[Rfam]
RNA sequence: UACAAACACAAGGGGUACCGCUUGCGCGGUUGAGAUAUACCCUCAGAACCUGAUGCAGCUCAUACUGCCGUAGGGAUGUGUCGAUUGAUUUAU
Numbered sequence: 001u002a003c004a005a006a007c008a009c010a011a012g013g014g015g016u017a018c019c020g021c022u023u024g025c026g027c028g029g030u031u032g033a034g035a036u037a038u039a040c041c042c043u044c045a046g047a048a049c050c051u052g053a054u055g056c057a058g059c060u061c062a063u064a065c066u067g068c069c070g071u072a073g074g075g076a077u078g079u080g081u082c083g084a085u086u087g088a089u090u091u092a093u
Stems, first nucleotide, its partner, number of pairs: 006081005011043004016037001017030005049074004055068004